[Rfam]
RNA sequence: AUAGGCACCGAGGGGUGUCCUGUUACGGGCUGAGAUGGCGCAAGCCGAACCCUUUGAACCUGAUCUGGGUCAUGCCAGCGAAGGGACGGCUGAGCCAGAUAAC
Numbered sequence: 001a002u003a004g005g006c007a008c009c010g011a012g013g014g015g016u017g018u019c020c021u022g023u024u025a026c027g028g029g030c031u032g033a034g035a036u037g038g039c040g041c042a043a044g045c046c047g048a049a050c051c052c053u054u055u056g057a058a059c060c061u062g063a064u065c066u067g068g069g070u071c072a073u074g075c076c077a078g079c080g081a082a083g084g085g086a087c088g089g090c091u092g093a094g095c096c097a098g099a100u101a102a103c
Stems, first nucleotide, its partner, number of pairs: 008089003011053004016047001017030004037046003059084003065078004
The family of this 103-nucleotide RNA from Erwinia sp. 198 is "TPP riboswitch aptamer (THI element)". The organism belongs to Erwinia, within Bacteria. Its family is annotated with thiamine pyrophosphate binding in the Gene Ontology.